The family of this 68-nucleotide RNA sequence from Nocardioides pocheonensis is "ASdes TB sRNA". The organism belongs to Nocardioides, within Bacteria. By type it is a small RNA. The base pairs follow the family's consensus structure, which is taken from published work. The family has 26 seed sequences and 1,192 matches in Rfam 15.1.

[Rfam]
RNA sequence: AGCUCGACAGGGUCGACUCCGCGCGUCACGACGAGAUAGUCCCGUAACGCGAUGCCGUGUCGAUGCUC
Numbered sequence: 001a002g003c004u005c006g007a008c009a010g011g012g013u014c015g016a017c018u019c020c021g022c023g024c025g026u027c028a029c030g031a032c033g034a035g036a037u038a039g040u041c042c043c044g045u046a047a048c049g050c051g052a053u054g055c056c057g058u059g060u061c062g063a064u065g066c067u068c
Stems, first nucleotide, its partner, number of pairs: 004063003008059002012029002015027003035056001037054002040052002043049002